[Rfam]
RNA sequence: CCGCCCGUCGCUACUACCGAUUGGAUGGCUUAGUGAGGUCCUCGGAUGGGCCCCGCCGGAGACGGAGACGCCGCCGGGGGAGCGCCCAGAAGACGAUCAAACUUGACUAUCUAGAGGAAGUAAAAGUCGUAACAAGGUUUCCGUAGGUGAACCUGCGGAAGGAUCAUUA
Numbered sequence: 001c002c003g004c005c006c007g008u009c010g011c012u013a014c015u016a017c018c019g020a021u022u023g024g025a026u027g028g029c030u031u032a033g034u035g036a037g038g039u040c041c042u043c044g045g046a047u048g049g050g051c052c053c054c055g056c057c058g059g060a061g062a063c064g065g066a067g068a069c070g071c072c073g074c075c076g077g078g079g080g081a082g083c084g085c086c087c088a089g090a091a092g093a094c095g096a097u098c099a100a101a102c103u104u105g106a107c108u109a110u111c112u113a114g115a116g117g118a119a120g121u122a123a124a125a126g127u128c129g130u131a132a133c134a135a136g137g138u139u140u141c142c143g144u145a146g147g148u149g150a151a152c153c154u155g156c157g158g159a160a161g162g163a164u165c166a167u168u169a
Stems, first nucleotide, its partner, number of pairs: 001136001003133001006129002009126001012122004017117002021113001023112006030105001032103003037098004042093002047088005052082001054080001056078002058075002061072001138161010
A member of the RNA family "Eukaryotic small subunit ribosomal RNA" from Gasterosteus aculeatus, 169 nucleotides of a longer RNA. Taxonomically the source falls in Gasterosteus (Eukaryota, Chordata, Vertebrata, Osteoglossocephalai). The literature on the family includes a 2001 paper in Science by Yusupov et al., "Crystal structure of the ribosome at 5.5 A resolution". Clan: SSU clan.